[Rfam]
RNA sequence: AAAACCACCCCAGCGACGUUCAUAGAAUGGCGCAAUAUGUUCGAUAUUAAAAUAACCUGACUUAUUAGUCCGAAUUCAGACAAAUAUAAACAAUUUUCGCUUAAUAUUAAAAAUACUAACCGAUAAAAGAUAUUACUUGAACAUGUAAAUUCACUUUCUUUAAACAACAAAAAACCGCCAAAAACAGGCGGUUAUUUGUUGCCGGUUUGGU
Numbered sequence: 001a002a003a004a005c006c007a008c009c010c011c012a013g014c015g016a017c018g019u020u021c022a023u024a025g026a027a028u029g030g031c032g033c034a035a036u037a038u039g040u041u042c043g044a045u046a047u048u049a050a051a052a053u054a055a056c057c058u059g060a061c062u063u064a065u066u067a068g069u070c071c072g073a074a075u076u077c078a079g080a081c082a083a084a085u086a087u088a089a090a091c092a093a094u095u096u097u098c099g100c101u102u103a104a105u106a107u108u109a110a111a112a113a114u115a116c117u118a119a120c121c122g123a124u125a126a127a128a129g130a131u132a133u134u135a136c137u138u139g140a141a142c143a144u145g146u147a148a149a150u151u152c153a154c155u156u157u158c159u160u161u162a163a164a165c166a167a168c169a170a171a172a173a174a175c176c177g178c179c180a181a182a183a184a185c186a187g188g189c190g191g192u193u194a195u196u197u198g199u200u201g202c203c204g205g206u207u208u209g210g211u
Stems, first nucleotide, its partner, number of pairs: 012045001014043003017039002022036002025033001057210004063086004068081003072077001119206004124201001129152002133148004166200006173193007
The family of this 211-nucleotide RNA from Shigella genomosp. SF-2015 is "IS128 RNA". The literature on the family includes a 2002 paper in Nucleic Acids Res by Tjaden et al., "Transcriptome analysis of Escherichia coli using high-density oligonucleotide probe arrays". Rfam describes the family as follows. This family consists of a number of bacterial RNA genes of 209 bases in length. The IS128 RNA gene is present in Escherichia coli and Shigella flexneri and where it is found between the sseA and sseB genes.